[Rfam]
RNA: Enterococcus sRNA 2410
RNA sequence: UUAGCUAUUUUAGAUAGACUUGUAUUCAGCAUUAUGGAUACAAGUAGCAAUGUGAUUUGUAUCUAUAAUGGCUAGAGCUUUUUACUGUGAAUUUUAGCCAUGUAGACACCCUAGAUGGCUGAAAACUUUUGAUAUGAUUUCAUCACCAUUUAGGCAUAUUGCUUAAAUGGUUUUAUUUUUAUCUAAU
Number, nucleotide and partner (000 for none) at each position: 001u075002u074003a073004g072005c071006u070007a069008u000009u000010u000011u065012a064013g063014a062015u061016a060017g000018a045019c044020u043021u042022g041023u040024a039025u038026u037027c036028a035029g000030c000031a000032u000033u000034a000035u028036g027037g026038a025039u024040a023041c022042a021043a020044g019045u018046a000047g000048c059049a058050a057051u000052g000053u000054g000055a000056u000057u050058u049059g048060u016061a015062u014063c013064u012065a011066u000067a000068a000069u007070g006071g005072c004073u003074a002075g001076a000077g000078c000079u134080u000081u132082u131083u000084a129085c000086u000087g126088u000089g000090a000091a000092u000093u000094u000095u000096a120097g119098c118099c117100a116101u115102g000103u113104a112105g111106a000107c000108a000109c000110c000111c105112u104113a103114g000115a101116u100117g099118g098119c097120u096121g000122a000123a000124a000125a000126c087127u000128u000129u084130u000131g082132a081133u000134a079135u000136g162137a000138u000139u000140u000141c000142a157143u000144c000145a000146c000147c000148a000149u000150u000151u000152a000153g000154g000155c000156a000157u142158a000159u000160u000161g000162c136163u000164u000165a000166a000167a000168u000169g000170g000171u000172u000173u000174u000175a000176u000177u000178u000179u000180u000181a000182u000183c000184u000185a000186a000187u000